[Rfam]
Shown here is a 46-nucleotide sequence from Burhinus bistriatus, a member of the family "Histone 3' UTR stem-loop". From the family's description: The mRNAs of metazoan histone genes lack a poly-A tail. 3' end processing occurs at a site between a highly conserved stem-loop (modelled by this family) and a purine rich region around 20 nts downstream (the histone downstream element, or HDE). The stem-loop is bound by a 31 kDa stem-loop binding protein (SLBP - also termed the histone hairpin binding protein, or HBP). Taxonomically the source falls in Burhinus (Eukaryota, Chordata, Tetrapoda, Neoaves). Rfam classes the family as a cis-regulatory element. Pairs were carried over by alignment from the consensus structure, which is taken from published work. A search with the family's covariance model found it, with a score of 37 bits.
RNA sequence: CCAAAGGCUCUUUUAAGAGCCACUUACAUACUCCCUGAAAGAGCUU
Numbered sequence: 001c002c003a004a005a006g007g008c009u010c011u012u013u014u015a016a017g018a019g020c021c022a023c024u025u026a027c028a029u030a031c032u033c034c035c036u037g038a039a040a041g042a043g044c045u046u
Base pairs, nucleotide, nucleotide: 006021007020008019009018010017011016